[Rfam]
RNA sequence: GUGGGAUGUGACACAUCCUAGUACAACGAAUCUGGACAGUAAUUUGUCCAGAUUCGUUGUACUAGGAUGUGUCACAUCCCAC
Numbered sequence: 001g002u003g004g005g006a007u008g009u010g011a012c013a014c015a016u017c018c019u020a021g022u023a024c025a026a027c028g029a030a031u032c033u034g035g036a037c038a039g040u041a042a043u044u045u046g047u048c049c050a051g052a053u054u055c056g057u058u059g060u061a062c063u064a065g066g067a068u069g070u071g072u073c074a075c076a077u078c079c080c081a082c
Base pairs, nucleotide, nucleotide: 001082002081003080004079005078006077007076008075010073011072012071013070014069015068016067018065019064020063021062022061023060024059025058026057027056028055029054030053031052032051033050034049035048036047037046038045

A member of the RNA family "MIR814 microRNA precursor family" from Oryza sativa, 82 nucleotides long. NCBI's taxonomy places the organism under Eukaryota, Embryophyta, Poales, Oryzinae, Oryza sativa.